[Rfam]
Nucleotides: 061
Stems, first nucleotide, its partner, number of pairs: 007060012022045001025042006
Number, partner (000 for none) and nucleotide at each position: 001000g002000a003000a004000a005000g006000u007060a008059a009058a010057g011056g012055a013054g014053c015052a016051a017050u018049a019000a020000c021000c022045a023000a024000u025042u026041u027040c028039u029038u030037g031000u032000u033000u034000u035000c036000u037030c038029a039028a040027g041026a042025g043000g044000a045022u046000u047000g048000g049018u050017a051016u052015u053014g054013c055012u056011c057010c058009u059008u060007u061000a
Shown here is a 61-nucleotide RNA sequence from Momordica charantia, a member of the family "Plastid-psbA-4 3UTR RNA". Pairs were carried over by alignment from the consensus structure, which was predicted with LocARNA. About the family: Plastid psbA-4 is a non-coding RNA (ncRNA) present in plastids. It was identified in inverted repeat sequences in the 3 prime untranslate region (3UTR) of photosystem II quinone-binding protein (psbA). Rfam's curators put it in the seed alignment.